[Rfam]
This 54-nucleotide sequence from Bacteroidales bacterium Barb4 belongs to the Rfam family "Acido-Lenti-1 RNA". Lineage of the source: Bacteria > Pseudomonadati > Bacteroidota > Bacteroidia > Bacteroidales. Rfam classes the family as a small RNA. It scores 40 bits against the family's covariance model.

RNA sequence: CCCCACAUUUGCUACGCUGCAUGUGGGGCUGAAAUAUCCCGUCCCUUCGGGACU
Numbered sequence: 001c002c003c004c005a006c007a008u009u010u011g012c013u014a015c016g017c018u019g020c021a022u023g024u025g026g027g028g029c030u031g032a033a034a035u036a037u038c039c040c041g042u043c044c045c046u047u048c049g050g051g052a053c054u
Base pairs, nucleotide, nucleotide: 001028002027003026004025005024006023007022008021041053042052043051044050045049